[Rfam]
RNA sequence: GCCCUGUGGUUACUGUAAUCUGUGCUUUCUAUACAGAAUCGCAGUUAUUUUAAGGGCCAACAUAAAUACUGUGAUUUAUGCAUGGUGGAAUGGUUUUGUCAUCAUCCACUAUAGCCCGGUCGCAGUGACAGUA
Numbered sequence: 001g002c003c004c005u006g007u008g009g010u011u012a013c014u015g016u017a018a019u020c021u022g023u024g025c026u027u028u029c030u031a032u033a034c035a036g037a038a039u040c041g042c043a044g045u046u047a048u049u050u051u052a053a054g055g056g057c058c059a060a061c062a063u064a065a066a067u068a069c070u071g072u073g074a075u076u077u078a079u080g081c082a083u084g085g086u087g088g089a090a091u092g093g094u095u096u097u098g099u100c101a102u103c104a105u106c107c108a109c110u111a112u113a114g115c116c117c118g119g120u121c122g123c124a125g126u127g128a129c130a131g132u133a
Stems, first nucleotide, its partner, number of pairs: 001058001003056002008049001010047001012045005019037005069125001071123006080115002082112004087107003091104004
Dot-bracket structure: (.((...(.(.(((((..(((((.........)))))...))))).).).....)).)..........(.((((((...((((((.(((.((((......))))))).)))).))..)))))).)........
RNA: Small nucleolar RNA SNORA84
Organism: Hymenochirus boettgeri